[Rfam]
RNA: Small nucleolar RNA SNORD21
RNA sequence: GCUGCGUGAUGAUACCCCAGUGACUGAGCAUUCUGUAGUUGGUCCUCAGUCUGUACAUGAUGUACUGCAUUGUUUCAAGACGGGACUGAUAGCAGC
Number, nucleotide and partner (000 for none) at each position: 001g093002c092003u091004g090005c000006g000007u000008g000009a000010u000011g000012a000013u000014a000015c000016c000017c000018c000019a000020g000021u000022g000023a000024c000025u000026g000027a000028g000029c000030a000031u000032u000033c000034u000035g000036u000037a000038g000039u000040u000041g000042g000043u000044c000045c000046u000047c000048a000049g000050u000051c000052u000053g000054u000055a000056c000057a000058u000059g000060a000061u000062g000063u000064a000065c000066u000067g000068c000069a000070u000071u000072g000073u000074u000075u000076c000077a000078a000079g000080a000081c000082g000083g000084g000085a000086c000087u000088g000089a000090u004091a003092g002093c001094a000095g000096c000